[Rfam]
RNA sequence: CCAGCCGCUGAGGUCAGGGGCUGGCCUUGUUGGACGCGCCGUCUUUCAGCGCUCCGUACCCAUGUUGCUUCAAGGAGGAUAUGGCUAUGGCAA
Number, nucleotide and partner (000 for none) at each position: 001c024002c023003a022004g021005c020006c019007g000008c018009u017010g000011a000012g000013g000014u000015c000016a000017g009018g008019g006020g005021c004022u003023g002024g001025c000026c000027u049028u048029g047030u000031u000032g044033g043034a042035c041036g040037c000038g000039c000040c036041g035042u034043c033044u032045u000046u000047c029048a028049g027050c000051g000052c000053u000054c090055c089056g088057u087058a086059c000060c084061c083062a082063u081064g080065u079066u078067g000068c077069u076070u075071c000072a000073a000074g000075g070076a069077g068078g066079a065080u064081a063082u062083g061084g060085c000086u058087a057088u056089g055090g054091c000092a000093a000
RNA: Repression of heat shock gene expression (ROSE) element